Overview:
Small nucleolar RNA R64/Z200 family: a 94-nucleotide RNA from Brassica napus. Gene Ontology terms of the family: nucleolus and RNA processing.

[Rfam]
RNA sequence: UUCCUGCGGUGAUGAUUUUAUGAAAUAUUCACAUGUCAGACUUCAGAGAUUCUUGACGAAUCAGUGAGAAUGUAUUCACAUUUCUGUGCAGAAG
Numbered sequence: 001u002u003c004c005u006g007c008g009g010u011g012a013u014g015a016u017u018u019u020a021u022g023a024a025a026u027a028u029u030c031a032c033a034u035g036u037c038a039g040a041c042u043u044c045a046g047a048g049a050u051u052c053u054u055g056a057c058g059a060a061u062c063a064g065u066g067a068g069a070a071u072g073u074a075u076u077c078a079c080a081u082u083u084c085u086g087u088g089c090a091g092a093a094g
Base pairs, nucleotide, nucleotide: 001094002093004091005090006089007088048062049061050060051059